Mammalian CPEB3 ribozyme: a 76-nucleotide sequence from Crocodylus porosus. The base pairs follow the family's consensus structure, which is taken from published work. The source organism's lineage runs through Eukaryota, Opisthokonta, Euteleostomi, Sarcopterygii and Crocodylus.
RNA sequence: AGUUUUAAAUUUAAGGCCAUAACAGAAGUGCUUAUGGCAUGGUCUGUCAGAUUCCAGUGAAUCUGUGAAUUCUCUU
Numbered sequence: 001a002g003u004u005u006u007a008a009a010u011u012u013a014a015g016g017c018c019a020u021a022a023c024a025g026a027a028g029u030g031c032u033u034a035u036g037g038c039a040u041g042g043u044c045u046g047u048c049a050g051a052u053u054c055c056a057g058u059g060a061a062u063c064u065g066u067g068a069a070u071u072c073u074c075u076u
Stems, first nucleotide, its partner, number of pairs: 015044004021076002024073004028040003048065007